A member of the RNA family "Small nucleolar RNA SNORA1" from Mesocricetus auratus, 133 nucleotides long. The family has 29 seed sequences and 1,282 matches in Rfam 15.1. A search with the family's covariance model found it, with a score of 136 bits. Rfam classes the family as an H/ACA-box small nucleolar RNA. About the family: ACA1 is a member of the H/ACA class of snoRNA that guide the sites of modification of uridines to pseudouridines.

RNA sequence: CGCCUCAUUUAACAUAAGAAUGGGCACUGCCAGUCAGUGUCCAGAACUGACUAAUGUGGCGAAACUGACACACAGGUUAUGCUUCCAUCACAGUAGAUACGUUACAGUGGUGACAAUGAGACCUGUAACAUUU
Numbered sequence: 001c002g003c004c005u006c007a008u009u010u011a012a013c014a015u016a017a018g019a020a021u022g023g024g025c026a027c028u029g030c031c032a033g034u035c036a037g038u039g040u041c042c043a044g045a046a047c048u049g050a051c052u053a054a055u056g057u058g059g060c061g062a063a064a065c066u067g068a069c070a071c072a073c074a075g076g077u078u079a080u081g082c083u084u085c086c087a088u089c090a091c092a093g094u095a096g097a098u099a100c101g102u103u104a105c106a107g108u109g110g111u112g113a114c115a116a117u118g119a120g121a122c123c124u125g126u127a128a129c130a131u132u133u
Stems, first nucleotide, its partner, number of pairs: 002060003006056003021043007072126005086112006